This 164-nucleotide RNA sequence from Salinivibrio sp. KP-1 belongs to the Rfam family "CpoB/ybgF ICR thermometer".
Rfam's curators write: Imprinting control region from upstream of cpoB/ybgF (tol/pal system protein).
On this family, see Righetti et al., Proc Natl Acad Sci U S A 2016: "Temperature-responsive in vitro RNA structurome of Yersinia pseudotuberculosis".
The family's RNA type in Rfam is RNA thermoregulator.

RNA sequence: UCAGAUCUCUAUCGUGAGCUACGGCGAAGAAAAACCGUUGGUACUUGGCCAAAGCGAAGAAGCUUACGCCAAAAACCGUCGUGCGGUAUUGGUAUACUAAUCCAGCCUUUUGGUAAUGGAUAAAGGAUAUGACAAUGAACAGUAACUCUGUGCGAACCCUCGCG
Numbered sequence: 001u002c003a004g005a006u007c008u009c010u011a012u013c014g015u016g017a018g019c020u021a022c023g024g025c026g027a028a029g030a031a032a033a034a035c036c037g038u039u040g041g042u043a044c045u046u047g048g049c050c051a052a053a054g055c056g057a058a059g060a061a062g063c064u065u066a067c068g069c070c071a072a073a074a075a076c077c078g079u080c081g082u083g084c085g086g087u088a089u090u091g092g093u094a095u096a097c098u099a100a101u102c103c104a105g106c107c108u109u110u111u112g113g114u115a116a117u118g119g120a121u122a123a124a125g126g127a128u129a130u131g132a133c134a135a136u137g138a139a140c141a142g143u144a145a146c147u148c149u150g151u152g153c154g155a156a157c158c159c160u161c162g163c164g
Stems, first nucleotide, its partner, number of pairs: 001047001003045002007041002014035002020029001054163002057160001059158001063154001065152004075143002078140001079138004083133001086130005